Shown here is a 109-nucleotide RNA from Falsibacillus albus, a member of the family "RNA Staph. aureus E (RoxS)".
[Rfam]
RNA sequence: GUGAAGUUGAUCACAAGCAAACAUAUACCCCUUUGUUUGACCGUGAAAAAUUUCUCCCAUCCCCUUUGUUCGUAAAUGGAAAGGCCUGGCUCGGUGCCAGGCCUUUUCU
Numbered sequence: 001g002u003g004a005a006g007u008u009g010a011u012c013a014c015a016a017g018c019a020a021a022c023a024u025a026u027a028c029c030c031c032u033u034u035g036u037u038u039g040a041c042c043g044u045g046a047a048a049a050a051u052u053u054c055u056c057c058c059a060u061c062c063c064c065u066u067u068g069u070u071c072g073u074a075a076a077u078g079g080a081a082a083g084g085c086c087u088g089g090c091u092c093g094g095u096g097c098c099a100g101g102c103c104u105u106u107u108c109u
Stems, first nucleotide, its partner, number of pairs: 003054006011046004018039006070076001080106011
On this family, see Geissmann et al., Nucleic Acids Res 2009: "A search for small noncoding RNAs in Staphylococcus aureus reveals a conserved sequence motif for regulation". About the family: It was shown to be regulated by the presence of nitric oxide (NO). In Bacillus subtilis it controls expression of genes with functions related to oxidative stress and oxidation-reduction reactions and it was renamed RoxS (for related to oxidative stress).